RNA: Small nucleolar RNA SNORA33
RNA sequence: UAGCCAGCCAAUUAAUCUACUCAUUUGAAUGUGUUUCUGCAGAAGUUCAGGAACAGCUGGCAAUGGUGAUGCCAUUUUAUGAGCCUUAAGGACAACUGAGGUCAUUACUGUCCCUCAAAAUUGCUACAAUA
Numbered sequence: 001u002a003g004c005c006a007g008c009c010a011a012u013u014a015a016u017c018u019a020c021u022c023a024u025u026u027g028a029a030u031g032u033g034u035u036u037c038u039g040c041a042g043a044a045g046u047u048c049a050g051g052a053a054c055a056g057c058u059g060g061c062a063a064u065g066g067u068g069a070u071g072c073c074a075u076u077u078u079a080u081g082a083g084c085c086u087u088a089a090g091g092a093c094a095a096c097u098g099a100g101g102u103c104a105u106u107a108c109u110g111u112c113c114c115u116c117a118a119a120a121u122u123g124c125u126a127c128a129a130u131a
Base pairs, nucleotide, nucleotide: 003061004060005059006058007057016043017042018041020039071124072123074121083111084110087107088106089105091103092102093101